[Rfam]
RNA sequence: UUGCGCCUGCGGCGGACCCGGCACGGCCAGCAACAAGGCGGCCCCGAUGCAUAACGCCGCCUUUUGACUUCGCAGGCAGUCGGCACGUGUACGGCCCGGUACAUCCAUGAAUUUCAUGGAUUUAAUUUCUUCU
Numbered sequence: 001u002u003g004c005g006c007c008u009g010c011g012g013c014g015g016a017c018c019c020g021g022c023a024c025g026g027c028c029a030g031c032a033a034c035a036a037g038g039c040g041g042c043c044c045c046g047a048u049g050c051a052u053a054a055c056g057c058c059g060c061c062u063u064u065u066g067a068c069u070u071c072g073c074a075g076g077c078a079g080u081c082g083g084c085a086c087g088u089g090u091a092c093g094g095c096c097c098g099g100u101a102c103a104u105c106c107a108u109g110a111a112u113u114u115c116a117u118g119g120a121u122u123u124a125a126u127u128u129c130u131u132c133u
Stems, first nucleotide, its partner, number of pairs: 005077007013098003017094002021090004026084003066081004105119006